[Rfam]
RNA sequence: GCAUGAGAAGGGCAAAACCGUUGAAAAGCGGCGACGCAAAGCUAGAGGGGCUUUUUGAAAAAUCAAAGUGCCAGCCAGCUGCCAAU
Numbered sequence: 001g002c003a004u005g006a007g008a009a010g011g012g013c014a015a016a017a018c019c020g021u022u023g024a025a026a027a028g029c030g031g032c033g034a035c036g037c038a039a040a041g042c043u044a045g046a047g048g049g050g051c052u053u054u055u056u057g058a059a060a061a062a063u064c065a066a067a068g069u070g071c072c073a074g075c076c077a078g079c080u081g082c083c084a085a086u
Stems, first nucleotide, its partner, number of pairs: 012037002018031005040080004047076002049072003055066004
Source information:
The record is an 86-nucleotide RNA sequence from Exobacillus caeni, which matches "c-di-GMP-I riboswitch aptamer" in Rfam. The organism belongs to Exobacillus, within Bacteria.